Background:
A member of the RNA family "Mammalian CPEB3 ribozyme" from Alligator sinensis, 70 nucleotides long. A search with the family's covariance model found it, with a score of 36 bits. The source organism's lineage runs through Eukaryota, Euteleostomi, Sauropsida, Alligatorinae and Alligator.
RNA sequence: GUCGCAAGUUCGAGGCCACAGCAGCAGUGCUCAAGGCUUGUCAGAUUCCAGUGAAUCUGCAAGUUCUGCU
Numbered sequence: 001g002u003c004g005c006a007a008g009u010u011c012g013a014g015g016c017c018a019c020a021g022c023a024g025c026a027g028u029g030c031u032c033a034a035g036g037c038u039u040g041u042c043a044g045a046u047u048c049c050a051g052u053g054a055a056u057c058u059g060c061a062a063g064u065u066c067u068g069c070u
Stems, first nucleotide, its partner, number of pairs: 012038001015037003020070005026064001028033001042059007